[Rfam]
RNA sequence: UCCACUGUGAAGUGGAAUCUGCAGGAAGCGAGCAGCAAACUUUUGGUCUGAGUAACACGAACUUCAUAUAAGGCUAAGUAUCAUUGGAUGAGUUUGCAUAACAAAGGUGAUACAGAGUAAAUGAAGCAAAUAGAUGGAAGGGAAGAUUGCACUC
Numbered sequence: 001u002c003c004a005c006u007g008u009g010a011a012g013u014g015g016a017a018u019c020u021g022c023a024g025g026a027a028g029c030g031a032g033c034a035g036c037a038a039a040c041u042u043u044u045g046g047u048c049u050g051a052g053u054a055a056c057a058c059g060a061a062c063u064u065c066a067u068a069u070a071a072g073g074c075u076a077a078g079u080a081u082c083a084u085u086g087g088a089u090g091a092g093u094u095u096g097c098a099u100a101a102c103a104a105a106g107g108u109g110a111u112a113c114a115g116a117g118u119a120a121a122u123g124a125a126g127c128a129a130a131u132a133g134a135u136g137g138a139a140g141g142g143a144a145g146a147u148u149g150c151a152c153u154c
Stems, first nucleotide, its partner, number of pairs: 001016006028154001030152001032150001036145001040140006046131002049128002062126006073118003078113006089106001092102003

The record is a 154-nucleotide sequence from Bacillus sp. THAF10, which matches "Group II catalytic intron D1-D4-3" in Rfam. NCBI's taxonomy places the organism under Bacteria, Bacillati, Bacillota, Bacilli, Bacillus. Gene Ontology term of the family: Group II intron splicing.